[Rfam]
Shown here is a 92-nucleotide RNA from Pararhodobacter marinus, a member of the family "Glycine riboswitch aptamer". Rfam's curators write: This family represents the bacterial glycine riboswitch. Glycine riboswitches usually consist of two metabolite-binding aptamers domains with similar structures in tandem. The aptamers cooperatively bind glycine to regulate the expression of downstream genes.
RNA sequence: GGGGUGAUGACGGGAGAAUCCGGCCCCCGGGCCGGUGCCGAAGGAGCAACCGCCCCGGUAAACUCUCAGGCGCCAAGGACCGUGAUCGCACU
Numbered sequence: 001g002g003g004g005u006g007a008u009g010a011c012g013g014g015a016g017a018a019u020c021c022g023g024c025c026c027c028c029g030g031g032c033c034g035g036u037g038c039c040g041a042a043g044g045a046g047c048a049a050c051c052g053c054c055c056c057g058g059u060a061a062a063c064u065c066u067c068a069g070g071c072g073c074c075a076a077g078g079a080c081c082g083u084g085a086u087c088g089c090a091c092u
Stems, first nucleotide, its partner, number of pairs: 006087003010083004020035004037071003040067002044065003050058002
Pairs were carried over by alignment from the consensus structure.
A search with the family's covariance model found it, with a score of 61 bits.